[Rfam]
RNA: Guanidine-II riboswitch aptamer (mini-ykkC)
RNA sequence: CACCCGGGACGUCCCGGGUGUGUUUCUAUUUUGUGGGGGACGUCCCCC
Numbered sequence: 001c002a003c004c005c006g007g008g009a010c011g012u013c014c015c016g017g018g019u020g021u022g023u024u025u026c027u028a029u030u031u032u033g034u035g036g037g038g039g040a041c042g043u044c045c046c047c048c
Stems, first nucleotide, its partner, number of pairs: 001020008035048005